mir-219 microRNA precursor family: a 78-nucleotide RNA sequence from Culex quinquefasciatus. The family's consensus secondary structure was predicted with RNAalifold. The source organism's lineage runs through Eukaryota, Panarthropoda, Culicinae, Culex and Culex pipiens complex.
[Rfam]
RNA sequence: UCUAGCUCUGAUUGUCCAAACGCAAUUCUUGUAUGAUUCAAGAUACCCAAGAGUUGUGACUGGACAUCCGUGGCUCGG
Numbered sequence: 001u002c003u004a005g006c007u008c009u010g011a012u013u014g015u016c017c018a019a020a021c022g023c024a025a026u027u028c029u030u031g032u033a034u035g036a037u038u039c040a041a042g043a044u045a046c047c048c049a050a051g052a053g054u055u056g057u058g059a060c061u062g063g064a065c066a067u068c069c070g071u072g073g074c075u076c077g078g
Base pairs, nucleotide, nucleotide: 002077004075005074006073007072010068011067012066014065015064016063017062018061021058022057023056024055025054026053027052028051029050030049031048